[Rfam]
Record summary
The family of this 81-nucleotide sequence from Sylvia borin is "GRIK4 3 prime UTR element". Pairs were carried over by alignment from the consensus structure, which was predicted with CMfinder. For this family Rfam cites "A common variant in the 3'UTR of the GRIK4 glutamate receptor gene affects transcript abundance and protects against bipolar disorder" (Pickard et al., Proc Natl Acad Sci U S A, 2008).

RNA sequence: GGGAUAUCGGGACAUCAGGACACGGGGCUGUCGGGAUAUCGGGACAUGCGCUGCUGGCAGCUGUCAGGCCGGAUCUGUCCA
Numbered sequence: 001g002g003g004a005u006a007u008c009g010g011g012a013c014a015u016c017a018g019g020a021c022a023c024g025g026g027g028c029u030g031u032c033g034g035g036a037u038a039u040c041g042g043g044a045c046a047u048g049c050g051c052u053g054c055u056g057g058c059a060g061c062u063g064u065c066a067g068g069c070c071g072g073a074u075c076u077g078u079c080c081a
Base pairs, nucleotide, nucleotide: 003040004039005038006037007036011032012031013030014029